A member of the RNA family "Glycine riboswitch aptamer" from Lachnospiraceae bacterium XBB1006, 86 nucleotides long.
[Rfam]
RNA sequence: AUGAGAAACCUAGGAGAGAAUGCAACAGUGUGUCACCGAAGGGGAAUUAGCAAGAAACUCUCAGGUAAAAGGACUAGGUUUUGACG
Dot-bracket structure: .....((((((((......((((......)))).(((((..(((..((...))....))))).))).......)))))))).....